[Rfam]
RNA sequence: UUGCCGGGACGACCCGGCAGGUUCAUCCGAAACCGGUGGGGACGGCCCUG
Numbered sequence: 001u002u003g004c005c006g007g008g009a010c011g012a013c014c015c016g017g018c019a020g021g022u023u024c025a026u027c028c029g030a031a032a033c034c035g036g037u038g039g040g041g042a043c044g045g046c047c048c049u050g
Stems, first nucleotide, its partner, number of pairs: 001020008037050005
RNA: Guanidine-II riboswitch aptamer (mini-ykkC)